[Rfam]
RNA sequence: GACGCCCAUACAACCGCCCCACACCGUGCUUUGCAUGCAUUGUGGGGUGAUACAUGUGGCGGAGAU
Numbered sequence: 001g002a003c004g005c006c007c008a009u010a011c012a013a014c015c016g017c018c019c020c021a022c023a024c025c026g027u028g029c030u031u032u033g034c035a036u037g038c039a040u041u042g043u044g045g046g047g048u049g050a051u052a053c054a055u056g057u058g059g060c061g062g063a064g065a066u
Base pairs, nucleotide, nucleotide: 003061004060005059006058007056016048017047018046019045020044021043022042023041026040027039028038029037
Dot-bracket structure: ..(((((........((((((((..((((.......)))))))))))).......).)))).....
Rfam assigns this 66-nucleotide RNA sequence from Trypanosoma brucei to the family "Trypanosomatid snoRNA TB10Cs4H3". The sequence is in the family's curated seed alignment. Pairs were carried over by alignment from the consensus structure, which was predicted with WAR. The literature on the family includes a 2005 paper in RNA by Liang et al., "A genome-wide analysis of C/D and H/ACA-like small nucleolar RNAs in Trypanosoma brucei reveals a trypanosome-specific pattern of rRNA modification". Taxonomically the source falls in Trypanosoma brucei gambiense (Eukaryota, Kinetoplastea, Trypanosomatidae, Trypanosoma brucei). Rfam classes the family as an H/ACA-box small nucleolar RNA.